RNA sequence: AACAAGUGAUGAUUAACAUUCUGCCAAAUGAACUAAUGUGAUUAUAAUCCAAGCCCGUAUAUUUUAUCUGAUGUU
Numbered sequence: 001a002a003c004a005a006g007u008g009a010u011g012a013u014u015a016a017c018a019u020u021c022u023g024c025c026a027a028a029u030g031a032a033c034u035a036a037u038g039u040g041a042u043u044a045u046a047a048u049c050c051a052a053g054c055c056c057g058u059a060u061a062u063u064u065u066a067u068c069u070g071a072u073g074u075u
Stems, first nucleotide, its partner, number of pairs: 001075004